[Rfam]
RNA sequence: AUGUUAAUGCUAAUCGUGAUAGGGGUUGCAAUUAAUCGGACACCUAACAUGAUAGCAUUAGCUU
Numbered sequence: 001a002u003g004u005u006a007a008u009g010c011u012a013a014u015c016g017u018g019a020u021a022g023g024g025g026u027u028g029c030a031a032u033u034a035a036u037c038g039g040a041c042a043c044c045u046a047a048c049a050u051g052a053u054a055g056c057a058u059u060a061g062c063u064u
Base pairs, nucleotide, nucleotide: 004061005060006059007058008057009056010055011054012053014051020046021045022044023043025041026040027039
RNA: mir-155 microRNA precursor family
Organism: Oryzias melastigma